[Rfam]
RNA sequence: UAUACAUGAAUAUAGGUUUCUCGUAUAUGUGCAGGAAUCGGCCUGCAUGUCUCUACCCGAUCACCGGAAUGAUCGGACUACGGGAUGAACGAUAUGUUUC
Numbered sequence: 001u002a003u004a005c006a007u008g009a010a011u012a013u014a015g016g017u018u019u020c021u022c023g024u025a026u027a028u029g030u031g032c033a034g035g036a037a038u039c040g041g042c043c044u045g046c047a048u049g050u051c052u053c054u055a056c057c058c059g060a061u062c063a064c065c066g067g068a069a070u071g072a073u074c075g076g077a078c079u080a081c082g083g084g085a086u087g088a089a090c091g092a093u094a095u096g097u098u099u100c
Stems, first nucleotide, its partner, number of pairs: 019085007029048007057076007
This 100-nucleotide RNA from Paenibacillus rhizosphaerae belongs to the Rfam family "Purine riboswitch aptamer". Gene Ontology term of the family: purine nucleobase biosynthetic process. Lineage of the source: Bacteria > Bacillota > Caryophanales > Paenibacillaceae > Paenibacillus. From the family's description: Riboswitches are metabolite binding domains within certain messenger RNAs that serve as precision sensors for their corresponding targets. A search with the family's covariance model found it, with a score of 72 bits.